RNA sequence: CCCGGCUCGCGGGAGACGGGCCUGUGCCGCCGCCACGUCUCGCGGCGGCGCAGCGUAUCCAUGUUGCUCAACGGAGGAUGUGGCUAUGCAAA
Numbered sequence: 001c002c003c004g005g006c007u008c009g010c011g012g013g014a015g016a017c018g019g020g021c022c023u024g025u026g027c028c029g030c031c032g033c034c035a036c037g038u039c040u041c042g043c044g045g046c047g048g049c050g051c052a053g054c055g056u057a058u059c060c061a062u063g064u065u066g067c068u069c070a071a072c073g074g075a076g077g078a079u080g081u082g083g084c085u086a087u088g089c090a091a092a
Base pairs, nucleotide, nucleotide: 001020002019003018004017006015007014008013024051025050026049027048028047029046030045031044032043033042053089054088055087056086057085059083060082061081062080063079064078065077067076068075069074
Shown here is a 92-nucleotide RNA sequence from Aureimonas jatrophae, a member of the family "Repression of heat shock gene expression (ROSE) element". A reference for the family is Nocker et al. (2001), "A mRNA-based thermosensor controls expression of rhizobial heat shock genes", Nucleic Acids Res. The family has 13 seed sequences and 381 matches in Rfam 15.1. This family represents a 5' UTR cis-regulatory element found in heat shock mRNAs and is known as the ROSE (repression of heat shock gene expression) element. The ROSE element is a negative regulator of heat shock gene expression. The secondary structure is thought to be regulated by temperature. This regulation blocks access to the ribosome binding site under normal conditions. During heat shock however, the structure changes freeing the ribosome binding site and allowing expression to occur. The match comes from Rfam's covariance-model search (58 bits).